Rfam assigns this 88-nucleotide RNA from Agrobacterium fabrum to the family "tRNA". NCBI's taxonomy places the organism under Bacteria, Pseudomonadota, Agrobacterium, Agrobacterium tumefaciens complex, Agrobacterium fabrum. The family's consensus secondary structure is taken from published work. A search with the family's covariance model found it, with a score of 61 bits.
RNA sequence: GGAGAGGUGGCCGAGUGGUCGAAGGCGCUCCCCUGCUAAGGGAGUAUACGUCAAAAGCGUAUCGUGGGUUCGAAUCCCAUCCUCUCCG
Numbered sequence: 001g002g003a004g005a006g007g008u009g010g011c012c013g014a015g016u017g018g019u020c021g022a023a024g025g026c027g028c029u030c031c032c033c034u035g036c037u038a039a040g041g042g043a044g045u046a047u048a049c050g051u052c053a054a055a056a057g058c059g060u061a062u063c064g065u066g067g068g069u070u071c072g073a074a075u076c077c078c079a080u081c082c083u084c085u086c087c088g
Stems, first nucleotide, its partner, number of pairs: 001087007010026003028044005064080005

Background
Gene Ontology term of the family: triplet codon-amino acid adaptor activity. The family's RNA type in Rfam is transfer RNA.